[Rfam]
RNA sequence: UGAAGUCUUUGUGGCAGGGUGGAAGUCCCUACCGAUGGUUACAGUCCAUGACCUGACGGCGUAAAGCGCGUAAAACGCGUAUAAGGCCUGAUGCUGAUCUGGUGAAAUUCCAGAACCGACGGUUACAGUCCGGAUGAGAAAAGACGUUU
Numbered sequence: 001u002g003a004a005g006u007c008u009u010u011g012u013g014g015c016a017g018g019g020u021g022g023a024a025g026u027c028c029c030u031a032c033c034g035a036u037g038g039u040u041a042c043a044g045u046c047c048a049u050g051a052c053c054u055g056a057c058g059g060c061g062u063a064a065a066g067c068g069c070g071u072a073a074a075a076c077g078c079g080u081a082u083a084a085g086g087c088c089u090g091a092u093g094c095u096g097a098u099c100u101g102g103u104g105a106a107a108u109u110c111c112a113g114a115a116c117c118g119a120c121g122g123u124u125a126c127a128g129u130c131c132g133g134a135u136g137a138g139a140a141a142a143g144a145c146g147u148u149u
Stems, first nucleotide, its partner, number of pairs: 003147001005145006017029003031129002033118002035049004044116002053093001098114005120132003
Dot-bracket structure: ..(.((((((......(((.......))).[[((((((.....[[))))...(.......................................)....(((((.......)))))]])).(((.....]]))).......)))))).)..
This 149-nucleotide RNA sequence from butyrate-producing bacterium SM4/1 belongs to the Rfam family "FMN riboswitch aptamer (RFN element)". Taxonomically the source falls in Eubacteriales (Bacteria, Bacillati, Bacillota, Clostridia).